[Rfam]
RNA sequence: AUUGGCGGAGAUAAAAACACAUCCCGGUAGGUAGUCCGGGAGCAGCUAUUGGGGUAUACAAUCCAAAAGCUGUCAGUAACCUUCCUUCCAGGUCGUCCAUUCUCACUUGCGCCACU
Dot-bracket structure: ...((..((((..........((((((........))))))((((((....................))))))..........(((...)))........))))..))........

azaaromatic riboswitch aptamer (yjdF RNA): a 116-nucleotide sequence from Emergencia timonensis. The organism belongs to Emergencia, within Bacteria. The family's consensus secondary structure is taken from published work.